Shown here is a 97-nucleotide part of an RNA from Methanosphaerula palustris, a member of the family "Archaeal large subunit ribosomal RNA".
For this family Rfam cites "Crystal structure of the ribosome at 5.5 A resolution" (Yusupov et al., Science, 2001).
Rfam 15.1 lists 2,955 matches to the family in 1,139 species.
Gene Ontology terms of the family: structural constituent of ribosome and ribosome.
Its Rfam clan is "LSU clan".
Rfam's curators put it in the seed alignment.
[Rfam]
RNA sequence: GUUAUAGCGUUAAAGGAUCUUCCAUGCGAAGGAACCCGUCGCGAGGCGGUAGUACGGGUAUGGUUGCCAAUGUUAUAACGUACGUUUUGAAGAACGG
Number, nucleotide and partner (000 for none) at each position: 001g079002u078003u077004a076005u075006a074007g073008c072009g071010u070011u000012a000013a000014a000015g068016g067017a000018u000019c000020u000021u000022c063023c062024a061025u060026g059027c058028g000029a000030a000031g055032g000033a000034a000035c000036c049037c048038g047039u046040c045041g000042c000043g000044a000045g040046g039047c038048g037049g036050u000051a000052g000053u000054a000055c031056g000057g000058g027059u026060a025061u024062g023063g022064u000065u000066g000067c016068c015069a000070a010071u009072g008073u007074u006075a005076u004077a003078a002079c001080g000081u000082a000083c096084g095085u094086u000087u000088u000089g000090a000091a000092g000093a000094a085095c084096g083097g000